A member of the RNA family "tRNA" from Kouleothrix aurantiaca, 74 nucleotides long.
NCBI's taxonomy places the organism under Bacteria, Chloroflexia, Chloroflexales, Roseiflexineae, Kouleothrix.
The family's consensus secondary structure is taken from published work.
From the family's description: Transfer RNA (tRNA) molecules are approximately 80 nucleotides in length.
It is annotated as a transfer RNA.
Its family is annotated with triplet codon-amino acid adaptor activity in the Gene Ontology.

Nucleotides: 074
Stems, first nucleotide, its partner, number of pairs: 001073007010026004028044005050066005
Number, partner (000 for none) and nucleotide at each position: 001073g002072g003071c004070c005069c006068c007067a008000u009000c010026g011025u012024c013023u014000a015000g016000c017000g018000g019000c020000c021000u022000a023013g024012g025011a026010c027000g028044a029043c030042a031041c032040c033000c034000u035000c036000u037000c038000a039000a040032g041031g042030u043029g044028u045000a046000g047000a048000u049000c050066g051065u052064g053063g054062g055000u056000u057000c058000g059000a060000a061000u062054c063053c064052c065051a066050c067007u068006g069005g070004g071003g072002u073001c074000a